[Rfam]
RNA sequence: GCCCGCCAGUGAGCCAGGGUUGUAUUGUAACCAAGCUGUGUCUCUGAGUUGCAUGGGUAUGAUACGACCUGGGUUACAGGAAGGU
Numbered sequence: 001g002c003c004c005g006c007c008a009g010u011g012a013g014c015c016a017g018g019g020u021u022g023u024a025u026u027g028u029a030a031c032c033a034a035g036c037u038g039u040g041u042c043u044c045u046g047a048g049u050u051g052c053a054u055g056g057g058u059a060u061g062a063u064a065c066g067a068c069c070u071g072g073g074u075u076a077c078a079g080g081a082a083g084g085u
Base pairs, nucleotide, nucleotide: 001085002084003083006080007079012075013074014073015072017070018069019068020067021066022065023064024063025062026061027060028059029058031056032055033054035052036051037048039046
RNA: mir-729 microRNA precursor family